Rfam assigns this 157-nucleotide sequence from Vagococcus allomyrinae to the family "glmS glucosamine-6-phosphate activated ribozyme aptamer". This entry contains a glucosamine-6-phosphate activated ribozyme that is found in the mRNA for GlmS. GlmS is an enzyme that uses fructose-6-phosphate and glutamine to generate glucosamine-6-phosphate.
RNA sequence: AUUUUAUGGAUAGCGCCAGACCUAUUCGGUUUUGAUGUUUAGGUGACGAGGACAGAGUUUAUCGAAAUUUCGGCGGGUGACUCUAGGGACUGCACUCUAAAGAUUAAGUCUAAAAAAUAGCUGUGAGGCUAUAACAGAAACUUGAUCAGGCAGAUAG
Numbered sequence: 001a002u003u004u005u006a007u008g009g010a011u012a013g014c015g016c017c018a019g020a021c022c023u024a025u026u027c028g029g030u031u032u033u034g035a036u037g038u039u040u041a042g043g044u045g046a047c048g049a050g051g052a053c054a055g056a057g058u059u060u061a062u063c064g065a066a067a068u069u070u071c072g073g074c075g076g077g078u079g080a081c082u083c084u085a086g087g088g089a090c091u092g093c094a095c096u097c098u099a100a101a102g103a104u105u106a107a108g109u110c111u112a113a114a115a116a117a118u119a120g121c122u123g124u125g126a127g128g129c130u131a132u133a134a135c136a137g138a139a140a141c142u143u144g145a146u147c148a149g150g151c152a153g154a155u156a157g
Stems, first nucleotide, its partner, number of pairs: 020044005027037001054084005062073004085098004102147007117132006
Dot-bracket structure: ...................(((((..(.........)..))))).........(((((...((((....))))......)))))((((......))))...(((((((........((((((....))))))........)))))))..........